[Rfam]
RNA: Purine riboswitch aptamer
RNA sequence: AACUUUUUGAAAAUUACAGCUUGUAUAUGAUCAUAAUUGGUUGAUCGUCUCUACCUAGUGCCGUAAACACUGGACUAUAAGCAAAAAAUAGGAUUAC
Numbered sequence: 001a002a003c004u005u006u007u008u009g010a011a012a013a014u015u016a017c018a019g020c021u022u023g024u025a026u027a028u029g030a031u032c033a034u035a036a037u038u039g040g041u042u043g044a045u046c047g048u049c050u051c052u053a054c055c056u057a058g059u060g061c062c063g064u065a066a067a068c069a070c071u072g073g074a075c076u077a078u079a080a081g082c083a084a085a086a087a088a089u090a091g092g093a094u095u096a097c
Stems, first nucleotide, its partner, number of pairs: 019082007029046005055073006